[Rfam]
RNA: Small nucleolar RNA SNORD22
Organism: Aquarana catesbeiana
RNA sequence: CCCUAAGGAUGAAACCUUCACAUGUCCGACCAGCUGAUCUCCACCAGAACCUGAAAAGGUGAACCCACUGGUGUAGUCAGCUGGAGAAGAUGGAUAACCUGUUCCUGAUGGAACAGUCUGAGGGGA
Numbered sequence: 001c002c003c004u005a006a007g008g009a010u011g012a013a014a015c016c017u018u019c020a021c022a023u024g025u026c027c028g029a030c031c032a033g034c035u036g037a038u039c040u041c042c043a044c045c046a047g048a049a050c051c052u053g054a055a056a057a058g059g060u061g062a063a064c065c066c067a068c069u070g071g072u073g074u075a076g077u078c079a080g081c082u083g084g085a086g087a088a089g090a091u092g093g094a095u096a097a098c099c100u101g102u103u104c105c106u107g108a109u110g111g112a113a114c115a116g117u118c119u120g121a122g123g124g125g126a
Stems, first nucleotide, its partner, number of pairs: 001125004